RNA sequence: AUGUUGUAGCUAAAGUAAUGCAAUAUGAAGUUUACUGGCCGGUUCUUGUGAGGUUUUUAUCUCUUUAAUCAACAUAUCUGCUUACCGAACUUCUCACAAAC
Numbered sequence: 001a002u003g004u005u006g007u008a009g010c011u012a013a014a015g016u017a018a019u020g021c022a023a024u025a026u027g028a029a030g031u032u033u034a035c036u037g038g039c040c041g042g043u044u045c046u047u048g049u050g051a052g053g054u055u056u057u058u059a060u061c062u063c064u065u066u067a068a069u070c071a072a073c074a075u076a077u078c079u080g081c082u083u084a085c086c087g088a089a090c091u092u093c094u095c096a097c098a099a100a101c
Stems, first nucleotide, its partner, number of pairs: 027093006037082003041078003046072003
A member of the RNA family "Small nucleolar RNA snoR109" from Papaver nudicaule, 101 nucleotides long.
For this family Rfam cites "Experimental RNomics: identification of 140 candidates for small non-messenger RNAs in the plant Arabidopsis thaliana" (Marker et al., Curr Biol, 2002).
The source organism's lineage runs through Eukaryota, Streptophytina, Tracheophyta, Spermatophyta and Papaver.
The base pairs follow the family's consensus structure, which was predicted with WAR.